[Rfam]
RNA sequence: UUGGCUGGGGUGGCACGCCCCUGCAAAGGUAUCAGGGGCGCCCUAAGGCGAGCUCAGGCGGGACAGAAACCCGCCGUAGAGGGCAAGGCCAAAAGCUCGCCUGACUGGAUCCCUAAACGCGUGGGAUCCAGGGGUGAAAGCCGGGCCUAGCGAACACUCGAGCCCUCUCGGUGAGGGCCGGGUACGACAAAAAAGU
Numbered sequence: 001u002u003g004g005c006u007g008g009g010g011u012g013g014c015a016c017g018c019c020c021c022u023g024c025a026a027a028g029g030u031a032u033c034a035g036g037g038g039c040g041c042c043c044u045a046a047g048g049c050g051a052g053c054u055c056a057g058g059c060g061g062g063a064c065a066g067a068a069a070c071c072c073g074c075c076g077u078a079g080a081g082g083g084c085a086a087g088g089c090c091a092a093a094a095g096c097u098c099g100c101c102u103g104a105c106u107g108g109a110u111c112c113c114u115a116a117a118c119g120c121g122u123g124g125g126a127u128c129c130a131g132g133g134g135u136g137a138a139a140g141c142c143g144g145g146c147c148u149a150g151c152g153a154a155c156a157c158u159c160g161a162g163c164c165c166u167c168u169c170g171g172u173g174a175g176g177g178c179c180g181g182g183u184a185c186g187a188c189a190a191a192a193a194a195g196u
Base pairs, nucleotide, nucleotide: 003016004014005013006012017039018038019037020036021035022034042145043144048100049099050098051097052096053095054080055079057075058074059073060072061071062070081090082089105131106130107129108128109127110126111125112124113123133142135140156183157182158181159180160179162178163177164176165175166174

Rfam assigns this 196-nucleotide part of an RNA from Candidatus Korarchaeum cryptofilum to the family "Archaeal large subunit ribosomal RNA". Rfam links the family to the GO terms ribosome and structural constituent of ribosome. Pairs were carried over by alignment from the consensus structure, which is taken from published work.